[Rfam]
About this RNA:
ASpks TB sRNA: a 75-nucleotide RNA from Streptomyces avermitilis. Pairs were carried over by alignment from the consensus structure, which is taken from published work.
RNA sequence: CUUCACCGACCCCAACCACACCGGCCGCUCCCCCGAACGACCCUGCCCGUACGUGGCGAGCAACGCCUGCGCCUC
Dot-bracket structure: ...............((.....))......(.(....((...((..(((....)))..))...))...).)....